[Rfam]
RNA sequence: AUAAAACAGGCAUGAAGUUCAAAUUCAUGCCAAUCGCGGUAAAGUCUUGGGAGGAUCAGAUCUUAGGCGCGCUAGACGCUGCCCCGGAAACGGUUAGGAUCACGCGAAACUGAAAAACAAGGCUUCAAUGCCUUGUUUUUUUUU
Numbered sequence: 001a002u003a004a005a006a007c008a009g010g011c012a013u014g015a016a017g018u019u020c021a022a023a024u025u026c027a028u029g030c031c032a033a034u035c036g037c038g039g040u041a042a043a044g045u046c047u048u049g050g051g052a053g054g055a056u057c058a059g060a061u062c063u064u065a066g067g068c069g070c071g072c073u074a075g076a077c078g079c080u081g082c083c084c085c086g087g088a089a090a091c092g093g094u095u096a097g098g099a100u101c102a103c104g105c106g107a108a109a110c111u112g113a114a115a116a117a118c119a120a121g122g123c124u125u126c127a128a129u130g131c132c133u134u135g136u137u138u139u140u141u142u143u144u
Stems, first nucleotide, its partner, number of pairs: 003144004011029006035106004044056004059101005066083003069079003084093003116137008

Alphaproteobacterial sRNA ar9: a 144-nucleotide RNA sequence from Aliirhizobium cellulosilyticum. A reference for the family is del Val et al. (2012), "A survey of sRNA families in alpha-proteobacteria", RNA Biol. The pairing is the family consensus, mapped onto this sequence. A search with the family's covariance model found it, with a score of 128 bits. Taxonomically the source falls in Aliirhizobium (Bacteria, Pseudomonadota, Hyphomicrobiales, Rhizobiaceae).